[Rfam]
RNA sequence: CACGGGACGACGACGAACAACCUGGAUGGAGGCGGGGGACCCAACGGUCCGCCGAACACAAGGACCAGGAGCCGCUCAGCGGCCCCUUGGGGUGAAGCCGUGUCUGACACGGCCGGGCAACCUCUCCAGCCCGAACCCGACAGCUGACCUCGUAGGCGUGCAUAAGAGAGGAUCU
Numbered sequence: 001c002a003c004g005g006g007a008c009g010a011c012g013a014c015g016a017a018c019a020a021c022c023u024g025g026a027u028g029g030a031g032g033c034g035g036g037g038g039a040c041c042c043a044a045c046g047g048u049c050c051g052c053c054g055a056a057c058a059c060a061a062g063g064a065c066c067a068g069g070a071g072c073c074g075c076u077c078a079g080c081g082g083c084c085c086c087u088u089g090g091g092g093u094g095a096a097g098c099c100g101u102g103u104c105u106g107a108c109a110c111g112g113c114c115g116g117g118c119a120a121c122c123u124c125u126c127c128a129g130c131c132c133g134a135a136c137c138c139g140a141c142a143g144c145u146g147a148c149c150u151c152g153u154a155g156g157c158g159u160g161c162a163u164a165a166g167a168g169a170g171g172a173u174c175u
Stems, first nucleotide, its partner, number of pairs: 001029001032153006042089002090138003098112004115132004